[Rfam]
Nucleotides: 046
Base pairs, nucleotide, nucleotide: 001020002019003018004017005016006015007014008013033045034044035043036042
Number, partner (000 for none) and nucleotide at each position: 001020c002019c003018u004017a005016g006015u007014u008013c009000u010000g011000a012000c013008g014007a015006a016005c017004u018003a019002g020001g021000c022000u023000g024000a025000u026000c027000u028000a029000u030000a031000c032000c033045g034044u035043u036042c037000c038000u039000u040000c041000a042036g043035a044034a045033c046000u